[Rfam]
RNA sequence: CACAGGUAUGGUGACAUGGUACCUAAAACUAUAGCCGGGAAGAUUUUUGGUUCCAUUUGUUCACUGAGUGGGGUCUUGGUCAUCGCACUGCCUGUUCCAGUGAUUGUAUCUAAC
Numbered sequence: 001c002a003c004a005g006g007u008a009u010g011g012u013g014a015c016a017u018g019g020u021a022c023c024u025a026a027a028a029c030u031a032u033a034g035c036c037g038g039g040a041a042g043a044u045u046u047u048u049g050g051u052u053c054c055a056u057u058u059g060u061u062c063a064c065u066g067a068g069u070g071g072g073g074u075c076u077u078g079g080u081c082a083u084c085g086c087a088c089u090g091c092c093u094g095u096u097c098c099a100g101u102g103a104u105u106g107u108a109u110c111u112a113a114c
Stems, first nucleotide, its partner, number of pairs: 004111002007108005014101002018097002021095002037077004050062001
RNA: Potassium channel RNA editing signal
Organism: Erinaceus europaeus